[Rfam]
Shown here is a 112-nucleotide RNA sequence from Sediminibacillus albus, a member of the family "TPP riboswitch aptamer (THI element)".
RNA sequence: UUGUACAUGUAGGGGGACCAGUAUUUGCUGGUUGAGAUCGUAUCCGUAUAGAUACAGACCCUUGGAACCUGAUCUGGCUGAAACCAGCGUAGGGAACAUAUUUUGACGGUAG
Numbered sequence: 001u002u003g004u005a006c007a008u009g010u011a012g013g014g015g016g017a018c019c020a021g022u023a024u025u026u027g028c029u030g031g032u033u034g035a036g037a038u039c040g041u042a043u044c045c046g047u048a049u050a051g052a053u054a055c056a057g058a059c060c061c062u063u064g065g066a067a068c069c070u071g072a073u074c075u076g077g078c079u080g081a082a083a084c085c086a087g088c089g090u091a092g093g094g095a096a097c098a099u100a101u102u103u104u105g106a107c108g109g110u111a112g
Stems, first nucleotide, its partner, number of pairs: 007099004011062004017032005040055004068093004074087004
Description:
Taxonomically the source falls in Sediminibacillus (Bacteria, Bacillati, Bacillota, Bacilli).